[Rfam]
RNA sequence: UCCUGAGGGCGUGUUUCAGCACGAUGUUGGAAAACUUCACCCCCUUGAGCCGCGCGGUCCGGAUAUAUUGCGCCGUCAUGACCUCGGUCAUCGAGGCCCGCGUCAUCCGCGCGAUAUACCCCAUGCCGUAAAGCGCGAUCGUUAUCACCGGCAGGGUGAAGUUCUCGAAACUCACGCUU
Number, nucleotide and partner (000 for none) at each position: 001u000002c000003c000004u141005g140006a139007g000008g000009g136010c135011g134012u133013g000014u131015u130016u128017c000018a000019g126020c125021a124022c000023g000024a000025u000026g000027u000028u123029g122030g121031a000032a000033a000034a000035c000036u000037u000038c113039a000040c111041c000042c109043c000044c000045u000046u105047g104048a103049g000050c000051c100052g099053c000054g097055c075056g074057g073058u072059c000060c070061g069062g068063a000064u000065a000066u000067a000068u062069u061070g060071c000072g058073c057074c056075g055076u000077c000078a000079u000080g000081a000082c096083c095084u094085c093086g092087g000088u000089c000090a000091u000092c086093g085094a084095g083096g082097c054098c000099c052100g051101c000102g000103u048104c047105a046106u000107c000108c000109g042110c000111g040112c000113g038114a000115u000116a000117u000118a000119c000120c000121c030122c029123a028124u021125g020126c019127c000128g016129u000130a015131a014132a000133g012134c011135g010136c009137g000138a000139u006140c005141g004142u000143u000144a000145u000146c000147a179148c000149c176150g175151g172152c000153a000154g165155g164156g163157u000158g000159a000160a000161g000162u000163u156164c155165u154166c000167g000168a000169a000170a000171c000172u151173c000174a000175c150176g149177c000178u000179u147
The record is a 179-nucleotide RNA sequence from Sulfitobacter sabulilitoris, which matches "Ruegeria cis52 sRNA" in Rfam.
The family's RNA type in Rfam is small RNA.
For this family Rfam cites "Experimental Identification of Small Non-Coding RNAs in the Model Marine Bacterium Ruegeria pomeroyi DSS-3" (Rivers et al., Front Microbiol, 2016).
The base pairs follow the family's consensus structure, which was predicted with RNAfold.
Taxonomically the source falls in Sulfitobacter (Bacteria, Pseudomonadota, Alphaproteobacteria, Rhodobacterales).
The match comes from Rfam's covariance-model search (127 bits).